[Rfam]
RNA sequence: UAGAAUAAUGUAGAUAAGGGAAGUCGGCAAAAUAGAUCCGUAACUUUGGGAAAAGGAUUGGCUCAUAGGGCAGAGCUUGUUGGGCCCUUGAUAGAUCUAUAGGGACCUGACUAGGACUACCCCUGGGUUAAACCGGAGGCGGACCUGGAUGGGACCUUGUAGUAAUGUCUUGGGUAGCAUUUUGGUCUUUUAGACCAUCUUUGCAUCUGGCAAGCAUUUAACUGUCAACUAUGAACUGGUACGGACAAGGGGAAUCUGACUGUCUAAUUAAAACAUAGCAUUGUGAUGGCCAGAAAGUGGUGUUGACACAAUGUGAUUUCUGCCCAGUGCUCUGAAUGUCAAAGUGAAGAAAUUCAACCAAGCGCGGGUAAACGGCGGGAGUAACUAUGACUCUCUUAAGGUAGCCAAAUGCCUCGUCAUCUAAUUAGUGACGCGCAUGAAUGGAUUAACGAGAUUCCCACUGUCCCUAUCUACUAUCUAGCGAAACCACAGCCAAGGGAAUGGGCUUGGCAAA
Numbered sequence: 001u002a003g004a005a006u007a008a009u010g011u012a013g014a015u016a017a018g019g020g021a022a023g024u025c026g027g028c029a030a031a032a033u034a035g036a037u038c039c040g041u042a043a044c045u046u047u048g049g050g051a052a053a054a055g056g057a058u059u060g061g062c063u064c065a066u067a068g069g070g071c072a073g074a075g076c077u078u079g080u081u082g083g084g085c086c087c088u089u090g091a092u093a094g095a096u097c098u099a100u101a102g103g104g105a106c107c108u109g110a111c112u113a114g115g116a117c118u119a120c121c122c123c124u125g126g127g128u129u130a131a132a133c134c135g136g137a138g139g140c141g142g143a144c145c146u147g148g149a150u151g152g153g154a155c156c157u158u159g160u161a162g163u164a165a166u167g168u169c170u171u172g173g174g175u176a177g178c179a180u181u182u183u184g185g186u187c188u189u190u191u192a193g194a195c196c197a198u199c200u201u202u203g204c205a206u207c208u209g210g211c212a213a214g215c216a217u218u219u220a221a222c223u224g225u226c227a228a229c230u231a232u233g234a235a236c237u238g239g240u241a242c243g244g245a246c247a248a249g250g251g252g253a254a255u256c257u258g259a260c261u262g263u264c265u266a267a268u269u270a271a272a273a274c275a276u277a278g279c280a281u282u283g284u285g286a287u288g289g290c291c292a293g294a295a296a297g298u299g300g301u302g303u304u305g306a307c308a309c310a311a312u313g314u315g316a317u318u319u320c321u322g323c324c325c326a327g328u329g330c331u332c333u334g335a336a337u338g339u340c341a342a343a344g345u346g347a348a349g350a351a352a353u354u355c356a357a358c359c360a361a362g363c364g365c366g367g368g369u370a371a372a373c374g375g376c377g378g379g380a381g382u383a384a385c386u387a388u389g390a391c392u393c394u395c396u397u398a399a400g401g402u403a404g405c406c407a408a409a410u411g412c413c414u415c416g417u418c419a420u421c422u423a424a425u426u427a428g429u430g431a432c433g434c435g436c437a438u439g440a441a442u443g444g445a446u447u448a449a450c451g452a453g454a455u456u457c458c459c460a461c462u463g464u465c466c467c468u469a470u471c472u473a474c475u476a477u478c479u480a481g482c483g484a485a486a487c488c489a490c491a492g493c494c495a496a497g498g499g500a501a502u503g504g505g506c507u508u509g510g511c512a513a514a
Base pairs, nucleotide, nucleotide: 001480002479003478004477010474011473012472013471014470015469016468018466019465020464035059036058037057038056039055044049060237061236063234064233065232066231067230068229069226070225071224072223073222075215076214077213078212079211080210081209082208083207084175085174086173090169091168097162098161099160100159102157103156104155106153107152108151109150111148112147113146114145115144117142118141120139121138123136124135125134126133238242250459251458252457253456254455255454256453257451258450261275262274263273278314279313280312281311282310283309284308285307289301290300291299292298318445319444320443322376323375324374327373328372329369330368331367332366334365337364338363339362345356346355347354348353377395378394379393380392381391382390396400416432417431418430419429420428493510494509495508496507497506